[Rfam]
RNA: mir-205 microRNA precursor family
Organism: Cavia porcellus
RNA sequence: UUCUCUUGUCCUUCAUUCCACCGGAGUCUGUCUGCGGCAACCAGACUUCAGUGGAGUGAAGCUCAGGAGUCG
Numbered sequence: 001u002u003c004u005c006u007u008g009u010c011c012u013u014c015a016u017u018c019c020a021c022c023g024g025a026g027u028c029u030g031u032c033u034g035c036g037g038c039a040a041c042c043a044g045a046c047u048u049c050a051g052u053g054g055a056g057u058g059a060a061g062c063u064c065a066g067g068a069g070u071c072g
Stems, first nucleotide, its partner, number of pairs: 011061006019053003023049004028044003
Dot-bracket structure: ..........((((((..(((.((((.(((...........))).)))).)))..))))))...........